Record summary:
A member of the RNA family "TPP riboswitch aptamer (THI element)" from Periweissella cryptocerci, 103 nucleotides long. The match comes from Rfam's covariance-model search (74 bits). Pairs were carried over by alignment from the consensus structure, which is taken from published work. The source organism's lineage runs through Bacteria, Bacillati, Bacillota, Lactobacillaceae and Periweissella.
[Rfam]
RNA sequence: AUAUUUCACUAGGGGUGUGACGAUGCGUCACUGAGAUCGGCUAGGCCGGGACCCUUGAACCUGUUGAGUUAAAACUCGCGUAGGAAAGUGGUUAAUCAAAGUA
Numbered sequence: 001a002u003a004u005u006u007c008a009c010u011a012g013g014g015g016u017g018u019g020a021c022g023a024u025g026c027g028u029c030a031c032u033g034a035g036a037u038c039g040g041c042u043a044g045g046c047c048g049g050g051a052c053c054c055u056u057g058a059a060c061c062u063g064u065u066g067a068g069u070u071a072a073a074a075c076u077c078g079c080g081u082a083g084g085a086a087a088g089u090g091g092u093u094a095a096u097c098a099a100a101g102u103a
Stems, first nucleotide, its partner, number of pairs: 006091005011055004016049001017031005038048004060084004065078004